glmS glucosamine-6-phosphate activated ribozyme aptamer: a 153-nucleotide RNA from Vagococcus penaei. This entry contains a glucosamine-6-phosphate activated ribozyme that is found in the mRNA for GlmS. GlmS is an enzyme that uses fructose-6-phosphate and glutamine to generate glucosamine-6-phosphate. NCBI's taxonomy places the organism under Bacteria, Bacillati, Bacillota, Bacilli, Vagococcus. The base pairs follow the family's consensus structure, which is taken from published work. Rfam links the family to the GO terms regulation of gene expression and catalytic activity. The literature on the family includes a 2004 paper in Nature by Winkler et al., "Control of gene expression by a natural metabolite-responsive ribozyme". Rfam classes the family as a riboswitch.
[Rfam]
RNA sequence: CAAUAAUGGAUAGCGCCAGACCUGUUUUAGUACAGGUGACGAGGAUAGGGCUUAUCGAGUAUUCGGCGGGUGGUCCUAAGGGUCUGCACUCUUAAAGAGCAUGGUAAAAAGUUAGUGGUGACACUAUAACAGAACAGUGACUCGAGCAGAUAG
Numbered sequence: 001c002a003a004u005a006a007u008g009g010a011u012a013g014c015g016c017c018a019g020a021c022c023u024g025u026u027u028u029a030g031u032a033c034a035g036g037u038g039a040c041g042a043g044g045a046u047a048g049g050g051c052u053u054a055u056c057g058a059g060u061a062u063u064c065g066g067c068g069g070g071u072g073g074u075c076c077u078a079a080g081g082g083u084c085u086g087c088a089c090u091c092u093u094a095a096a097g098a099g100c101a102u103g104g105u106a107a108a109a110a111g112u113u114a115g116u117g118g119u120g121a122c123a124c125u126a127u128a129a130c131a132g133a134a135c136a137g138u139g140a141c142u143c144g145a146g147c148a149g150a151u152a153g
Stems, first nucleotide, its partner, number of pairs: 020037006046078005055066004079092005097143003100139003113126005